[Rfam]
Nucleotides: 102
Base pairs, nucleotide, nucleotide: 001102002101003100004099006097007096008095012051013050014049015048017046019044021042024039025038026037027036028035029034055083057081063075064074065073066072067071
Number, partner (000 for none) and nucleotide at each position: 001102g002101g003100g004099c005000a006097a007096g008095a009000u010000a011000g012051g013050u014049g015048a016000a017046g018000u019044u020000a021042g022000c023000u024039a025038a026037c027036c028035a029034g030000c031000a032000a033000g034029c035028u036027g037026g038025u039024u040000a041000u042021c043000a044019a045000a046017u047000c048015u049014c050013a051012c052000a053000a054000g055083u056000a057081u058000u059000a060000u061000u062000c063075g064074c065073a066072c067071c068000u069000u070000c071067g072066g073065u074064g075063c076000u077000c078000a079000a080000c081057g082000a083055a084000a085000a086000a087000u088000c089000g090000a091000u092000g093000c094000u095008u096007c097006u098000a099004g100003u101002u102001c
Source information:
traJ-II RNA: a 102-nucleotide RNA from Legionella waltersii. Rfam 15.1 lists 174 matches to the family in 172 species. Rfam classes the family as a cis-regulatory element. The base pairs follow the family's consensus structure, which is taken from published work.